[Rfam]
RNA sequence: AGAGCUUCGAGUCAAUAAAGACUGAGUAGAUUGACUCAGAAACAA
Numbered sequence: 001a002g003a004g005c006u007u008c009g010a011g012u013c014a015a016u017a018a019a020g021a022c023u024g025a026g027u028a029g030a031u032u033g034a035c036u037c038a039g040a041a042a043c044a045a
Stems, first nucleotide, its partner, number of pairs: 006040002009037008
A member of the RNA family "Plastid-rpl16 group II-D1 intron" from Papaver orientale, 45 nucleotides long. Plastid-rpl16 is a non-coding RNA (ncRNA) recognised in plastids. It was recognised in and intronic region of a ribosome rpl16 gene. Rfam's curators put it in the seed alignment. For this family Rfam cites "Retrograde signaling in plants: A critical review focusing on the GUN pathway and beyond" (Richter et al., Plant Commun, 2023).